RNA sequence: UGGUUUAUGCUGAGUUAUGAUUACUGACCAUGAUGAAGUGAAGCUCAGUAUAAGUACUCUGAAGUCU
Numbered sequence: 001u002g003g004u005u006u007a008u009g010c011u012g013a014g015u016u017a018u019g020a021u022u023a024c025u026g027a028c029c030a031u032g033a034u035g036a037a038g039u040g041a042a043g044c045u046c047a048g049u050a051u052a053a054g055u056a057c058u059c060u061g062a063a064g065u066c067u
Stems, first nucleotide, its partner, number of pairs: 002066004012059003021052001025047003029043001
Source information:
A member of the RNA family "Small Nucleolar RNA SNORD64" from Ailuropoda melanoleuca, 67 nucleotides long. The literature on the family includes a 2001 paper in Hum Mol Genet by Runte et al., "The IC-SNURF-SNRPN transcript serves as a host for multiple small nucleolar RNA species and as an antisense RNA for UBE3A". The human snoRNA HBII-13 belongs to the C/D family of snoRNAs. It is expressed mainly in the brain, but is also in the lungs, the kidneys and muscle. The family's RNA type in Rfam is C/D-box small nucleolar RNA.